[Rfam]
RNA sequence: GGCGGGUCGAGAGAGCCUAAUACAAUACCCUUUCGGGAAAUACGCUCCGCCGUCUGACGCGGUAGUUGAAGCCCGCCACCCCACU
Numbered sequence: 001g002g003c004g005g006g007u008c009g010a011g012a013g014a015g016c017c018u019a020a021u022a023c024a025a026u027a028c029c030c031u032u033u034c035g036g037g038a039a040a041u042a043c044g045c046u047c048c049g050c051c052g053u054c055u056g057a058c059g060c061g062g063u064a065g066u067u068g069a070a071g072c073c074c075g076c077c078a079c080c081c082c083a084c085u
Stems, first nucleotide, its partner, number of pairs: 001077007013047004018042002028037003049063005
A member of the RNA family "sRNA-Xcc1", 85 nucleotides long.
The family's consensus secondary structure was predicted with RNAalifold.
A reference for the family is Wengelnik et al. (1996), "HrpG, a key hrp regulatory protein of Xanthomonas campestris pv. vesicatoria is homologous to two-component response regulators", Mol Plant Microbe Interact.